[Rfam]
RNA sequence: UACCUCUUUAACCCAGUCCUGCGAGGCUGACAAGAGGGUAAAUCCUUACAUGGAGUCUGACGGCUAAAGUCAACUUUGUUAGGUGAAACCUCUUUGUCAUACGCAAAGAGGUUUUUUGUUU
Numbered sequence: 001u002a003c004c005u006c007u008u009u010a011a012c013c014c015a016g017u018c019c020u021g022c023g024a025g026g027c028u029g030a031c032a033a034g035a036g037g038g039u040a041a042a043u044c045c046u047u048a049c050a051u052g053g054a055g056u057c058u059g060a061c062g063g064c065u066a067a068a069g070u071c072a073a074c075u076u077u078g079u080u081a082g083g084u085g086a087a088a089c090c091u092c093u094u095u096g097u098c099a100u101a102c103g104c105a106a107a108g109a110g111g112u113u114u115u116u117u118g119u120u121u
Stems, first nucleotide, its partner, number of pairs: 003037006014029005044083003048079003052075001085115013
Dot-bracket structure: ..((((((.....(((((......)))))..))))))......(((.(((.(......................).))).))).(((((((((((((.....)))))))))))))......